[Rfam]
RNA sequence: AUCAAUAAAGGCAAACCCGCUGAAAGGCGGGGACGCAAAGCCAUGGGUCUACAGUCAGCUCUCCCUAAGCUGACCAUGAUUGCCAGGUUGCUGAUU
Numbered sequence: 001a002u003c004a005a006u007a008a009a010g011g012c013a014a015a016c017c018c019g020c021u022g023a024a025a026g027g028c029g030g031g032g033a034c035g036c037a038a039a040g041c042c043a044u045g046g047g048u049c050u051a052c053a054g055u056c057a058g059c060u061c062u063c064c065c066u067a068a069g070c071u072g073a074c075c076a077u078g079a080u081u082g083c084c085a086g087g088u089u090g091c092u093g094a095u096u
Stems, first nucleotide, its partner, number of pairs: 001096001003093002011036002016031006034082001039089004044085003047080003
A member of the RNA family "c-di-GMP-I-GGC riboswitch aptamer" from Tumebacillus algifaecis, 96 nucleotides long. The family's consensus secondary structure is taken from published work. Rfam links the family to the GO term cyclic-di-GMP binding. Taxonomically the source falls in Tumebacillus (Bacteria, Bacillati, Bacillota, Caryophanales). The match comes from Rfam's covariance-model search (71 bits).